[Rfam]
RNA sequence: AUUUGAUGAUGGGGACAGCUUGCACACAGCUUCUUAAAUCUCUCCCAAUACUCAUACAAGCUCUCUCCAUUGUACUGCCAGGUGCCACAAAUUUCUUUUCUUAUAUU
Numbered sequence: 001a002u003u004u005g006a007u008g009a010u011g012g013g014g015a016c017a018g019c020u021u022g023c024a025c026a027c028a029g030c031u032u033c034u035u036a037a038a039u040c041u042c043u044c045c046c047a048a049u050a051c052u053c054a055u056a057c058a059a060g061c062u063c064u065c066u067c068c069a070u071u072g073u074a075c076u077g078c079c080a081g082g083u084g085c086c087a088c089a090a091a092u093u094u095c096u097u098u099u100c101u102u103a104u105a106u107u
Base pairs, nucleotide, nucleotide: 001107003105005102006101058073060071

The record is a 107-nucleotide sequence from Hevea brasiliensis, which matches "Plant small nucleolar RNA R71" in Rfam. Rfam 15.1 lists 278,378 matches to the family in 216 species. The family's consensus secondary structure was predicted with PFOLD. Taxonomically the source falls in Hevea (Eukaryota, Tracheophyta, Pentapetalae, fabids). The literature on the family includes a 2003 paper in Trends Plant Sci by Brown et al., "Plant snoRNAs: functional evolution and new modes of gene expression". It scores 46 bits against the family's covariance model. Rfam classes the family as a C/D-box small nucleolar RNA. Its family is annotated with nucleolus and RNA processing in the Gene Ontology.